[Rfam]
RNA sequence: CCGGGGUGAGUAUUACAUCAGGUACUGGUGUGAUUUUUGAUAUGGCCAUCGUCGGAUAACCGUCCAUCGUUGGGCCGCCAUAGCGACAAUCAGUACUUAUGUUAUACUCUUCCCGU
Numbered sequence: 001c002c003g004g005g006g007u008g009a010g011u012a013u014u015a016c017a018u019c020a021g022g023u024a025c026u027g028g029u030g031u032g033a034u035u036u037u038u039g040a041u042a043u044g045g046c047c048a049u050c051g052u053c054g055g056a057u058a059a060c061c062g063u064c065c066a067u068c069g070u071u072g073g074g075c076c077g078c079c080a081u082a083g084c085g086a087c088a089a090u091c092a093g094u095a096c097u098u099a100u101g102u103u104a105u106a107c108u109c110u111u112c113c114c115g116u
Stems, first nucleotide, its partner, number of pairs: 002115005009108004015102004021097009
RNA: mir-12 microRNA precursor family
Organism: Anopheles sinensis